[Rfam]
RNA sequence: UGACGGGGGCCCGCACAAGCAGCGGAGCGUGUGGUUUAAUUCGAGGCUACACGAAGAACCUUACCUGGGUUUGACAUCACGGUGGUAGUGAAGCGAAAGCGGAACGACCUACGGGAGCCGUGACAGGUGCUGCAUGGCUGUCGUCAGCUCGUGUCGUGAGAUGUUCGGUUAAGUCCGAAAACGAGCGCAACCCUCGGUGCCAGUUACAGGUGUCUGGCGCGACUGCCUUCGAGAAGGAGGAGGAAGGUGGGGAUGACGUCAAGUCAGCAUGGCCUUUAUAUCCAGGGCUACACACACGCUACAAUGGGCGGCACAAUUGGAAGCGAACCCGCGAGGGGGAGCGGAUCCGUGAAAGCCGUUCGUAGUUCGGAUUGCAGGCUGCAACUCGCCUGCAUGAAGCUGGAGUUGCUAGUAACCGCAGGUCAGCGAUACUGCGGUGAAUACGUUCCCGGGCCUUGUACACACCGCCCGUCACGUCAUGGGAGCUGGUCACGCCUGAAGCCGAUGAGCGAACCGCAAGGAAGCAGUCGUCGAAGGCAGGGCCGGUGACUGGGACGAAGUCGUAACAAGGUAGCUGUAGCGGAAGCUGCGGCUGGAUCA
Dot-bracket structure: (((((.(((((((.((..((((((.((((((((((....((((........))))........(((((((......((.((((....((...((....))...))..((....)).)))).))..((.((((..((((((.((...(((((((((....)))..((((......))))..)))))).....((((.(((((((..........)))))))..((.(((((.....))))).)).....))))....)).).)))...))))))))....)))))))...)).)))))))).)...(((((((.....(((..((...(((....)))...))....))).....)))))))......(....(((((((........)))))))....).....))))).....(((((((..........)))))))......))...)))))))))).))..(.(..((...((((.(((..(((((((..(((....(.((((..((...((....))..)).)))).)...)))..)))))))..))).))))....))...)..).((((((((((....)))))))))).....

Shown here is a 600-nucleotide part of an RNA from an uncultured bacterium, a member of the family "Bacterial small subunit ribosomal RNA".